[Rfam]
Nucleotides: 123
Base pairs, nucleotide, nucleotide: 004036005035006034007033008032013030014029015028016027017026018025047082048081049080050079051078053076054075055074057072058071059070060069086117087116088115089114090113091112092111093110094109095108096107097106098105
Number, partner (000 for none) and nucleotide at each position: 001000g002000a003000a004036c005035c006034u007033u008032u009000u010000a011000a012000u013030c014029c015028a016027g017026u018025c019000c020000a021000g022000u023000g024000a025018g026017g027016c028015u029014g030013g031000c032008a033007a034006g035005g036004g037000c038000a039000c040000g041000g042000a043000a044000u045000g046000a047082c048081a049080a050079a051078c052000a053076g054075g055074c056000g057072g058071g059070a060069c061000g062000c063000u064000u065000a066000a067000a068000a069060g070059u071058c072057c073000g074055g075054u076053c077000a078051g079050u080049u081048u082047g083000u084000c085000c086117g087116a088115a089114g090113g091112c092111u093110u094109c095108u096107u097106g098105u099000c100000u101000c102000c103000u104000g105098a106097c107096a108095a109094g110093g111092a112091g113090c114089c115088u116087u117086u118000u119000u120000u121000c122000g123000u